The family of this 188-nucleotide sequence from Acinetobacter guillouiae is "Aar sRNA". It scores 128 bits against the family's covariance model. The source organism's lineage runs through Bacteria, Pseudomonadota, Moraxellaceae, Acinetobacter and Acinetobacter guillouiae. The base pairs follow the family's consensus structure, which was predicted with mfold. Rfam links the family to the GO term regulation of cellular amino acid metabolic process.

[Rfam]
RNA sequence: GUUUACGAGAUUUAACACUUGUUUACGUGAAUACCAAUGAAUUUACAGAGGGGAACCUCUACUAUCAAACUUAAGUUAUGAACAAUCCCCAAAGUUCAUAACAUUUCUCCUUAACCGAACUGUGAAAGCAGAUUCGUUGUUCUACGCAGUGAUCACCCCAAUCAUUGCGUAUUUUUUUGUCUUCAGUU
Dot-bracket structure: ............(..(..((((...(((........))).....)))).)..)................((.((((((.(.((..........)).).))...............((((((((....)))).)))).......((((((((((.......))))))))))........).))).))..